[Rfam]
RNA sequence: GCCUGGAGGACCCUUAGUGGCCUGGGAUGCAGGCUUCAAACCUGUAGCCGUCUAGCAACAGAGUGGUUCAUUUUCACCUUUCAGGU
Dot-bracket structure: (((((((((...(((((....))))).((((((.......)))))).(.((......)).).((((.......)))))))))))))

Overview: This 86-nucleotide RNA from Ibidorhyncha struthersii belongs to the Rfam family "Selenocysteine transfer RNA". The source organism's lineage runs through Eukaryota, Eumetazoa, Vertebrata, Coelurosauria and Ibidorhyncha. A reference for the family is Mizutani and Goto (2000), "Eukaryotic selenocysteine tRNA has the 9/4 secondary structure", FEBS Lett. The family's consensus secondary structure is taken from published work.